[Rfam]
RNA sequence: AAAAAGGGCUUCUGCCGUGCGUGGCACGGGCGGGCUUUCAGCCACUCCCGCGGAAUCGACAUCAAGAGAUUUCGGAAGCACAAUUUUUGUGAUGAAGGGCUGCUAGUAACCGCUUGUUCUGGCACCCUG
Numbered sequence: 001a002a003a004a005a006g007g008g009c010u011u012c013u014g015c016c017g018u019g020c021g022u023g024g025c026a027c028g029g030g031c032g033g034g035c036u037u038u039c040a041g042c043c044a045c046u047c048c049c050g051c052g053g054a055a056u057c058g059a060c061a062u063c064a065a066g067a068g069a070u071u072u073c074g075g076a077a078g079c080a081c082a083a084u085u086u087u088u089g090u091g092a093u094g095a096a097g098g099g100c101u102g103c104u105a106g107u108a109a110c111c112g113c114u115u116g117u118u119c120u121g122g123c124a125c126c127c128u129g
Stems, first nucleotide, its partner, number of pairs: 008079005013026005027050004032045001034042002051074007097127003102123005108118003